[Rfam]
Shown here is a 105-nucleotide RNA sequence from Calidifontibacillus erzurumensis, a member of the family "Manganese Mn2+ riboswitch aptamer (yybP-ykoY)". The base pairs follow the family's consensus structure. The match comes from Rfam's covariance-model search (54 bits). A reference for the family is Barrick et al. (2004), "New RNA motifs suggest an expanded scope for riboswitches in bacterial genetic control", Proc Natl Acad Sci U S A.
RNA sequence: AAUUUUUUCAAAGGGGAGUAGCGUCAGGUAUUUUAUAAAUACCUGAAACAAAGUCGUCAUUUCAUGGAGUUCAUUCCAUCGGCUUUGUUGACAUGAUUCAUGUUC
Numbered sequence: 001a002a003u004u005u006u007u008u009c010a011a012a013g014g015g016g017a018g019u020a021g022c023g024u025c026a027g028g029u030a031u032u033u034u035a036u037a038a039a040u041a042c043c044u045g046a047a048a049c050a051a052a053g054u055c056g057u058c059a060u061u062u063c064a065u066g067g068a069g070u071u072c073a074u075u076c077c078a079u080c081g082g083c084u085u086u087g088u089u090g091a092c093a094u095g096a097u098u099c100a101u102g103u104u105c
Stems, first nucleotide, its partner, number of pairs: 025045003047089010064079005090104006